[Rfam]
RNA: Plastid-ycf2 5UTR RNA
Organism: Corymbia citriodora
RNA sequence: GUGCAUCCAAUAAGAAUUGAACCAACGAAUUCGCCAAUGAUGAGUUGAGAGCUUUAACCAUUCAGCCAUGGAUAGC
Numbered sequence: 001g002u003g004c005a006u007c008c009a010a011u012a013a014g015a016a017u018u019g020a021a022c023c024a025a026c027g028a029a030u031u032c033g034c035c036a037a038u039g040a041u042g043a044g045u046u047g048a049g050a051g052c053u054u055u056a057a058c059c060a061u062u063c064a065g066c067c068a069u070g071g072a073u074a075g076c
Base pairs, nucleotide, nucleotide: 003076004075005073006072007071008070011025014022040069041068042067044066045065046064047063048062049061051059
Dot-bracket structure: ..((((((..(..(.......)..)..............(((.((((((.(.......).))))))))))))).))